[Rfam]
RNA sequence: UUGCAUACUUGAAGACCUAAACUUGCAAACUUGAAGAAUUUGAAGACUUCAACUUGCAAACUUGAUUGAUUUGAAGACCUCAACU
Numbered sequence: 001u002u003g004c005a006u007a008c009u010u011g012a013a014g015a016c017c018u019a020a021a022c023u024u025g026c027a028a029a030c031u032u033g034a035a036g037a038a039u040u041u042g043a044a045g046a047c048u049u050c051a052a053c054u055u056g057c058a059a060a061c062u063u064g065a066u067u068g069a070u071u072u073g074a075a076g077a078c079c080u081c082a083a084c085u
Base pairs, nucleotide, nucleotide: 001083002082003081009074010073011072012071013070018065020063024058025057026056027055031052032051033050034049035048036047